[Rfam]
RNA sequence: CUUGAGCGAGCCCAGCCAGAGGGGGUCGCCCUCCCGCCGGUCCCGGCCGUACACGGCCUGGAGCGCCUUGAUCUC
Numbered sequence: 001c002u003u004g005a006g007c008g009a010g011c012c013c014a015g016c017c018a019g020a021g022g023g024g025g026u027c028g029c030c031c032u033c034c035c036g037c038c039g040g041u042c043c044c045g046g047c048c049g050u051a052c053a054c055g056g057c058c059u060g061g062a063g064c065g066c067c068u069u070g071a072u073c074u075c
Stems, first nucleotide, its partner, number of pairs: 014026001016024002032070001038065002043060001045058001047056003
The family of this 75-nucleotide RNA sequence from Saccharothrix syringae is "ASpks TB sRNA".
NCBI's taxonomy places the organism under Bacteria, Actinomycetota, Actinomycetes, Pseudonocardiales, Saccharothrix.
By type it is an antisense RNA.
Pairs were carried over by alignment from the consensus structure, which is taken from published work.